RAGATH-18 RNA: a 79-nucleotide RNA.

[Rfam]
Nucleotides: 079
Base pairs, nucleotide, nucleotide: 001077002076003075004074005073009066010065011064012063013062022061023060024059030054031053032052033051034050035049036048037047
Number, partner (000 for none) and nucleotide at each position: 001077c002076c003075u004074a005073u006000u007000g008000a009066g010065u011064g012063u013062u014000a015000u016000a017000u018000c019000a020000a021000a022061u023060g024059a025000u026000a027000g028000u029000a030054g031053a032052c033051a034050c035049a036048u037047g038000a039000g040000c041000a042000a043000a044000g045000u046000c047037c048036a049035u050034g051033u052032g053031u054030c055000g056000a057000g058000g059024u060023c061022a062013g063012a064011c065010a066009c067000g068000g069000u070000g071000a072000u073005g074004u075003a076002g077001g078000a079000a
About the family: Actinobacteria, Firmicutes, Fusobacteria, Thermotogae (1 example).